[Rfam]
RNA sequence: UACUUGUGUAGAGGCGCACUGCCUAUCAGUAACCCAAUGAAGGUCGACAACCGUUGAUAUUGGGCCAAAGGAGUCAGUGCCGAAGCGAAUAGGGCGUCAUCCCAUUCUGCUGGGGUUGUAUCAAAUAGGUACAACACUGCCAUAGUUAUCUCUGUCGAGAGACAGGUUUACCGUAACUAUGGAGCGCUACUGAAAGA
Numbered sequence: 001u002a003c004u005u006g007u008g009u010a011g012a013g014g015c016g017c018a019c020u021g022c023c024u025a026u027c028a029g030u031a032a033c034c035c036a037a038u039g040a041a042g043g044u045c046g047a048c049a050a051c052c053g054u055u056g057a058u059a060u061u062g063g064g065c066c067a068a069a070g071g072a073g074u075c076a077g078u079g080c081c082g083a084a085g086c087g088a089a090u091a092g093g094g095c096g097u098c099a100u101c102c103c104a105u106u107c108u109g110c111u112g113g114g115g116u117u118g119u120a121u122c123a124a125a126u127a128g129g130u131a132c133a134a135c136a137c138u139g140c141c142a143u144a145g146u147u148a149u150c151u152c153u154g155u156c157g158a159g160a161g162a163c164a165g166g167u168u169u170a171c172c173g174u175a176a177c178u179a180u181g182g183a184g185c186g187c188u189a190c191u192g193a194a195a196g197a
Stems, first nucleotide, its partner, number of pairs: 008190004016080006023073002033064007084111004089106001092103003112138002115135008140182010
Record summary: This 197-nucleotide RNA sequence from Ferrimonas lipolytica belongs to the Rfam family "Lysine riboswitch aptamer". Rfam links the family to the GO term lysine biosynthetic process. Taxonomically the source falls in Ferrimonas (Bacteria, Gammaproteobacteria, Alteromonadales, Ferrimonadaceae).